Record summary:
This 94-nucleotide sequence from Branchiostoma floridae belongs to the Rfam family "mir-2060 microRNA precursor family". Gene Ontology terms of the family: miRNA-mediated post-transcriptional gene silencing and RISC complex. The match comes from Rfam's covariance-model search (83 bits). NCBI's taxonomy places the organism under Eukaryota, Eumetazoa, Amphioxiformes, Branchiostomatidae, Branchiostoma. The family's consensus secondary structure was predicted with RNAalifold. Rfam 15.1 lists 3,696 matches to the family in 4 species.

[Rfam]
RNA sequence: GUUUGCCUCUGCAUGGAUGGUUUUCAGCACUUAGGACAGGUAUGUUUGCCUGUGUGUGGAUAGUGUUCAGUACCAUGAACAGGAGUGUUUAACU
Numbered sequence: 001g002u003u004u005g006c007c008u009c010u011g012c013a014u015g016g017a018u019g020g021u022u023u024u025c026a027g028c029a030c031u032u033a034g035g036a037c038a039g040g041u042a043u044g045u046u047u048g049c050c051u052g053u054g055u056g057u058g059g060a061u062a063g064u065g066u067u068c069a070g071u072a073c074c075a076u077g078a079a080c081a082g083g084a085g086u087g088u089u090u091a092a093c094u
Stems, first nucleotide, its partner, number of pairs: 004085001006083003010079001018075004023070002026067006034055001036053007